Notes: The family of this 69-nucleotide RNA sequence from Triplophysa tibetana is "mir-34 microRNA precursor family". The literature on the family includes a 2003 paper in Dev Cell by Houbaviy et al., "Embryonic stem cell-specific MicroRNAs". Rfam links the family to the GO terms RISC complex and miRNA-mediated post-transcriptional gene silencing.

RNA sequence: GGUCGCCAGGCAGUGUAGUUAGUUGAUUACGAUAUUUAUAGUAAUCACUAACCUCACUACCGGGUGAAG
Numbered sequence: 001g002g003u004c005g006c007c008a009g010g011c012a013g014u015g016u017a018g019u020u021a022g023u024u025g026a027u028u029a030c031g032a033u034a035u036u037u038a039u040a041g042u043a044a045u046c047a048c049u050a051a052c053c054u055c056a057c058u059a060c061c062g063g064g065u066g067a068a069g
Stems, first nucleotide, its partner, number of pairs: 003067004009061002012058004018052005024047007
Taxonomically the source falls in Triplophysa (Eukaryota, Actinopterygii, Teleostei, Otophysi). From the family's description: Human mir-34a was discovered computationally and later experimentally verified. The mature sequence is excised from the 5' arm of the hairpin.